About this RNA:
Lysine riboswitch aptamer: a 172-nucleotide RNA sequence from Thalassomonas actiniarum.
RNA sequence: AGGGCCAGAAGAGGAGCGUUAACCAGGUAAUUAUUUUGAGGAGAUCAAACUCCGGUGAUAAAUAAUGAGGGGGAUUAACGCCGAGAUAGCGCUAUUUUUGAUGAUAGCGAUAUCGGUUGACCGGGUUGAAUCCCGCCGACUGUCACCUGUUAGGUGGAGAGCUUCUGGCCUU
Numbered sequence: 001a002g003g004g005c006c007a008g009a010a011g012a013g014g015a016g017c018g019u020u021a022a023c024c025a026g027g028u029a030a031u032u033a034u035u036u037u038g039a040g041g042a043g044a045u046c047a048a049a050c051u052c053c054g055g056u057g058a059u060a061a062a063u064a065a066u067g068a069g070g071g072g073g074a075u076u077a078a079c080g081c082c083g084a085g086a087u088a089g090c091g092c093u094a095u096u097u098u099u100g101a102u103g104a105u106a107g108c109g110a111u112a113u114c115g116g117u118u119g120a121c122c123g124g125g126u127u128g129a130a131u132c133c134c135g136c137c138g139a140c141u142g143u144c145a146c147c148u149g150u151u152a153g154g155u156g157g158a159g160a161g162c163u164u165c166u167g168g169c170c171u172u
Stems, first nucleotide, its partner, number of pairs: 006167006016081007024073001030066007085114004090109007115141005121135001123134003143157006

Rfam's curators write: Riboswitches are metabolite binding domains within certain messenger RNAs that serve as precision sensors for their corresponding targets. A search with the family's covariance model found it, with a score of 103 bits.